Overview:
msiK RNA: a 55-nucleotide RNA sequence from Enemella dayhoffiae. Pairs were carried over by alignment from the consensus structure, which is taken from published work. NCBI's taxonomy places the organism under Bacteria, Actinomycetota, Propionibacteriales, Propionibacteriaceae, Enemella.
[Rfam]
RNA sequence: GGCCUGGAUUCCACUACGGAUCGUCGGGCACGUACCUGCCCGUGGAAGGAUUGAU
Numbered sequence: 001g002g003c004c005u006g007g008a009u010u011c012c013a014c015u016a017c018g019g020a021u022c023g024u025c026g027g028g029c030a031c032g033u034a035c036c037u038g039c040c041c042g043u044g045g046a047a048g049g050a051u052u053g054a055u
Stems, first nucleotide, its partner, number of pairs: 009047005025042006